[Rfam]
RNA: U7 small nuclear RNA
Organism: Propithecus coquereli
RNA sequence: UAGUGUUAUAGCUCUUUUAGAAUUUGUCUAGCAGGUUUUCCCAUUUUCAUUGGAAGAAUUCCCCC
Numbered sequence: 001u002a003g004u005g006u007u008a009u010a011g012c013u014c015u016u017u018u019a020g021a022a023u024u025u026g027u028c029u030a031g032c033a034g035g036u037u038u039u040c041c042c043a044u045u046u047u048c049a050u051u052g053g054a055a056g057a058a059u060u061c062c063c064c065c
Base pairs, nucleotide, nucleotide: 034062035061037056038055039054040053041052043050044049